[Rfam]
RNA sequence: CUUGCAAGUAAGCCGAAUCUCCAUUUGGAGUACGGGGGAUUUUAUUUUAGGGGUGAAUCUUUUAGAUUUGAAAGUAGGGGACCUCAACCCGAACCCGUCAGCUAACCUCGGAGGCAAAAGAGGAGGAAGAA
Numbered sequence: 001c002u003u004g005c006a007a008g009u010a011a012g013c014c015g016a017a018u019c020u021c022c023a024u025u026u027g028g029a030g031u032a033c034g035g036g037g038g039a040u041u042u043u044a045u046u047u048u049a050g051g052g053g054u055g056a057a058u059c060u061u062u063u064a065g066a067u068u069u070g071a072a073a074g075u076a077g078g079g080g081a082c083c084u085c086a087a088c089c090c091g092a093a094c095c096c097g098u099c100a101g102c103u104a105a106c107c108u109c110g111g112a113g114g115c116a117a118a119a120g121a122g123g124a125g126g127a128a129g130a131a
Base pairs, nucleotide, nucleotide: 012115013114014113019030020029033110034109035108036107037106042050043049051096052095053094059074060073061072062071077090078089079088

A member of the RNA family "c-di-AMP riboswitch aptamer (ydaO/yuaA leader)" from Clostridium aciditolerans, 131 nucleotides long. Lineage of the source: Bacteria > Clostridia > Eubacteriales > Clostridiaceae > Clostridium.